The family of this 67-nucleotide RNA sequence from Sporosarcina limicola is "Bacillaceae-1 RNA".
RNA sequence: UUAGCGGAAAGGCAGACUAAGAACGCCGCGUCCUGCGGCAACGUCUACAUGACUCACUUCGUGUGAG
Numbered sequence: 001u002u003a004g005c006g007g008a009a010a011g012g013c014a015g016a017c018u019a020a021g022a023a024c025g026c027c028g029c030g031u032c033c034u035g036c037g038g039c040a041a042c043g044u045c046u047a048c049a050u051g052a053c054u055c056a057c058u059u060c061g062u063g064u065g066a067g
Base pairs, nucleotide, nucleotide: 012048014046015045016044017043025039026038027037028036029035053067054066055065056064057063
Lineage of the source: Bacteria > Bacillati > Bacillota > Caryophanaceae > Sporosarcina.